[Rfam]
Nucleotides: 054
Base pairs, nucleotide, nucleotide: 013043014041015040016039020036021035022034023033024032025031
Number, partner (000 for none) and nucleotide at each position: 001000u002000u003000g004000c005000u006000u007000c008000u009000a010000c011000u012000u013043u014041g015040u016039a017000a018000a019000u020036c021035g022034c023033u024032u025031u026000g027000g028000a029000u030000a031025a032024a033023a034022g035021u036020g037000u038000c039016u040015g041014c042000u043013a044000a045000a046000u047000g048000a049000c050000u051000a052000a053000a054000u